[Rfam]
GmglnB1 5'UTR: an 85-nucleotide RNA from Glycine max. The organism belongs to Glycine subgen. Soja, within Eukaryota.
RNA sequence: GAAUUCUCUAAAAGAGAUCUUUUUCUGCUCUUUGAAGAAAGAAGGGUCUUUGCUUGAUUUUGGAGAUGUCUCUGCUCUCAGAUCU
Numbered sequence: 001g002a003a004u005u006c007u008c009u010a011a012a013a014g015a016g017a018u019c020u021u022u023u024u025c026u027g028c029u030c031u032u033u034g035a036a037g038a039a040a041g042a043a044g045g046g047u048c049u050u051u052g053c054u055u056g057a058u059u060u061u062g063g064a065g066a067u068g069u070c071u072c073u074g075c076u077c078u079c080a081g082a083u084c085u
Base pairs, nucleotide, nucleotide: 005066006065007064008063009062010061011060012059013058014050015049016048017047018046019045020044021043022042023039024038025037026036071082072081073080074079
On this family, see Ortega et al., Mol Genet Genomics 2012: "The 5' untranslated region of the soybean cytosolic glutamine synthetase beta1 gene contains prokaryotic translation initiation signals and acts as a translational enhancer in plants". Rfam classes the family as a cis-regulatory element.